The record is a 153-nucleotide RNA sequence from Takifugu rubripes, which matches "U12 minor spliceosomal RNA" in Rfam. Its family is annotated with mRNA branch site recognition, pre-mRNA branch point binding and U12 snRNP in the Gene Ontology. The sequence is in the family's curated seed alignment.
[Rfam]
RNA sequence: AUGCCUUAAACUGAUGAGUAAGGAAAAUAACGAUGCGGGGUGACGCCCGUGUCCUCGUUGCACUUACGAGAUCAAUUUUUGAAAGGGCACAGGUCUGCUUGCUGGGUGACUCGCCUACUUUGCGAGAUGCCUUGCGGGGCUAGGACCUGCCCC
Numbered sequence: 001a002u003g004c005c006u007u008a009a010a011c012u013g014a015u016g017a018g019u020a021a022g023g024a025a026a027a028u029a030a031c032g033a034u035g036c037g038g039g040g041u042g043a044c045g046c047c048c049g050u051g052u053c054c055u056c057g058u059u060g061c062a063c064u065u066a067c068g069a070g071a072u073c074a075a076u077u078u079u080u081g082a083a084a085g086g087g088c089a090c091a092g093g094u095c096u097g098c099u100u101g102c103u104g105g106g107u108g109a110c111u112c113g114c115c116u117a118c119u120u121u122g123c124g125a126g127a128u129g130c131c132u133u134g135c136g137g138g139g140c141u142a143g144g145a146c147c148u149g150c151c152c153c
Base pairs, nucleotide, nucleotide: 004023005022006021007020008019032053033052034051035050036049037048038047039046054070055069056068057067058066085152086151087150088149091148092147093146094145095144096143101135102134104132105131106130107129108128110126111125112124113123114122
Pairs were carried over by alignment from the consensus structure. It is annotated as a spliceosomal small nuclear RNA.